[Rfam]
A member of the RNA family "MIR2275 microRNA precursor family" from Thalictrum thalictroides, 99 nucleotides long.
Pairs were carried over by alignment from the consensus structure, which was predicted with RNAalifold.
NCBI's taxonomy places the organism under Eukaryota, Spermatophyta, Mesangiospermae, Ranunculaceae, Thalictrum.
Gene Ontology terms of the family: RISC complex and miRNA-mediated post-transcriptional gene silencing.
RNA sequence: UGUUUGAAUAUGAGAAUUGGAUGGAACCAAACCCUUCUCCAUGUUUAUGGUAAAACUUAAAAGAGGCUUUGCUUUCCUCCAAUAUCUCAUCUUCAACAA
Numbered sequence: 001u002g003u004u005u006g007a008a009u010a011u012g013a014g015a016a017u018u019g020g021a022u023g024g025a026a027c028c029a030a031a032c033c034c035u036u037c038u039c040c041a042u043g044u045u046u047a048u049g050g051u052a053a054a055a056c057u058u059a060a061a062a063g064a065g066g067c068u069u070u071g072c073u074u075u076c077c078u079c080c081a082a083u084a085u086c087u088c089a090u091c092u093u094c095a096a097c098a099a
Stems, first nucleotide, its partner, number of pairs: 004096005011089004016083006023076004028071003032066002